[Rfam]
The family of this 392-nucleotide RNA from Pseudooceanicola atlanticus is "Bacterial RNase P class A". The family's consensus secondary structure is taken from published work. For this family Rfam cites "Ribonuclease P: unity and diversity in a tRNA processing ribozyme" (Frank and Pace, Annu Rev Biochem, 1998). The source organism's lineage runs through Bacteria, Pseudomonadati, Pseudomonadota, Alphaproteobacteria and Pseudooceanicola. Rfam links the family to the GO terms dimeric ribonuclease P complex, ribonuclease P activity and tRNA processing. About the family: Ribonuclease P (RNase P) is a ubiquitous endoribonuclease, found in archaea, bacteria and eukarya as well as chloroplasts and mitochondria. A search with the family's covariance model found it, with a score of 267 bits.
RNA sequence: ACGGAGGGCCGGAUGGCCGCGGGCCGCAAGGUCCGAGGAAAGUCCGGACUCCACAAGGCAACGGUGCCGGGUAACGCCCGGCGGGGGCAACCCCAGGGACAGCGCCACAGAGAACAGACCGCCGCGGGAUGCCGCGGCAAGGGUGAAACGGUGCGGUAAGAGCGCACCGCGGGACGGGCAACCGGACCGGCAUGGCAAGCCCCACCGGGAGCAAUGCCGAAUAGGAACCUCACGCGGGGCCGGUCGCGCAAGCGAUACCGCCGCAGGCCGCCUUGGCCCGGAGGUUCGGGUUGGCAGCUUGAGGCGCCGGGCAACCGUGCGUCCAGAGGAAUGGUCAUCGAACCGGGGGCAACCCCGGGGAACAGAAUCCGGCUUACAGGCCCUCCGUGCGU
Numbered sequence: 001a002c003g004g005a006g007g008g009c010c011g012g013a014u015g016g017c018c019g020c021g022g023g024c025c026g027c028a029a030g031g032u033c034c035g036a037g038g039a040a041a042g043u044c045c046g047g048a049c050u051c052c053a054c055a056a057g058g059c060a061a062c063g064g065u066g067c068c069g070g071g072u073a074a075c076g077c078c079c080g081g082c083g084g085g086g087g088c089a090a091c092c093c094c095a096g097g098g099a100c101a102g103c104g105c106c107a108c109a110g111a112g113a114a115c116a117g118a119c120c121g122c123c124g125c126g127g128g129a130u131g132c133c134g135c136g137g138c139a140a141g142g143g144u145g146a147a148a149c150g151g152u153g154c155g156g157u158a159a160g161a162g163c164g165c166a167c168c169g170c171g172g173g174a175c176g177g178g179c180a181a182c183c184g185g186a187c188c189g190g191c192a193u194g195g196c197a198a199g200c201c202c203c204a205c206c207g208g209g210a211g212c213a214a215u216g217c218c219g220a221a222u223a224g225g226a227a228c229c230u231c232a233c234g235c236g237g238g239g240c241c242g243g244u245c246g247c248g249c250a251a252g253c254g255a256u257a258c259c260g261c262c263g264c265a266g267g268c269c270g271c272c273u274u275g276g277c278c279c280g281g282a283g284g285u286u287c288g289g290g291u292u293g294g295c296a297g298c299u300u301g302a303g304g305c306g307c308c309g310g311g312c313a314a315c316c317g318u319g320c321g322u323c324c325a326g327a328g329g330a331a332u333g334g335u336c337a338u339c340g341a342a343c344c345g346g347g348g349g350c351a352a353c354c355c356c357g358g359g360g361a362a363c364a365g366a367a368u369c370c371g372g373c374u375u376a377c378a379g380g381c382c383c384u385c386c387g388u389g390c391g392u
Base pairs, nucleotide, nucleotide: 001388002387003386004385005384006383007382008381009380010379011377012339013338014337015336016335017334018333020035021034022033023032024031025030040375041374042373044372045371046370047369048368049211050210051209052208057274058273062207063206064205065204066203067081068080069079070078071077082096083094084093085092086091097202098201102200103199104196105195106194119142120141121138122137123136124135125134126133127132150168151167152166153165154164155163169191170189171188172187175184176183177182215296216295217294218293225287226286227285228284229283230282266278267277268276269275303323304322305321306320307319308317309316310315